[Rfam]
RNA: Small nucleolar RNA SNORA5
Nucleotides: 137
Base pairs, nucleotide, nucleotide: 002060003059004058005057018047019046020045021044023042024041025040026039027038028037074129075128076127077125078124086114087113088112089111090110
Number, partner (000 for none) and nucleotide at each position: 001000c002060g003059c004058a005057g006000c007000c008000u009000c010000g011000u012000c013000a014000a015000a016000u017000u018047c019046g020045g021044u022000g023042c024041u025040c026039g027038c028037c029000u030000c031000c032000a033000c034000c035000g036000u037028g038027g039026c040025g041024g042023g043000g044021a045020c046019c047018g048000g049000c050000c051000c052000a053000a054000g055000g056000g057005c058004u059003g060002c061000c062000a063000c064000a065000g066000c067000g068000a069000u070000g071000u072000c073000c074129g075128u076127g077125c078124u079000c080000u081000a082000c083000g084000g085000g086114c087113c088112c089111c090110g091000c092000g093000u094000c095000c096000c097000u098000g099000c100000c101000g102000u103000g104000g105000g106000a107000c108000g109000u110090c111089g112088g113087g114086g115000a116000u117000c118000a119000a120000a121000a122000u123000a124078a125077g126000u127076u128075a129074c130000g131000g132000a133000c134000a135000c136000u137000c